RNA sequence: GAAGAUUUCAUCGGGUUGUAGUUCACGAAAAUAUAACCGCGCCCCUGAUCAAUGAUAUGGAACAGCGGAUUCCAGUCGAACAGGGCAACCAUAUGCGCGGGCAACGUGUUGGCCACAAACAUCUUGCCUGACGCAAACAUAUUCGCGCGCG
Numbered sequence: 001g002a003a004g005a006u007u008u009c010a011u012c013g014g015g016u017u018g019u020a021g022u023u024c025a026c027g028a029a030a031a032u033a034u035a036a037c038c039g040c041g042c043c044c045c046u047g048a049u050c051a052a053u054g055a056u057a058u059g060g061a062a063c064a065g066c067g068g069a070u071u072c073c074a075g076u077c078g079a080a081c082a083g084g085g086c087a088a089c090c091a092u093a094u095g096c097g098c099g100g101g102c103a104a105c106g107u108g109u110u111g112g113c114c115a116c117a118a119a120c121a122u123c124u125u126g127c128c129u130g131a132c133g134c135a136a137a138c139a140u141a142u143u144c145g146c147g148c149g150c151g
Stems, first nucleotide, its partner, number of pairs: 002034001004032001006031003011025001013023002036056001038054002041050001065150003070080003085146002088143001091142005096133002098130003102126003106122002109118003

This 151-nucleotide RNA from Boseongicola aestuarii belongs to the Rfam family "Ruegeria cis2 sRNA".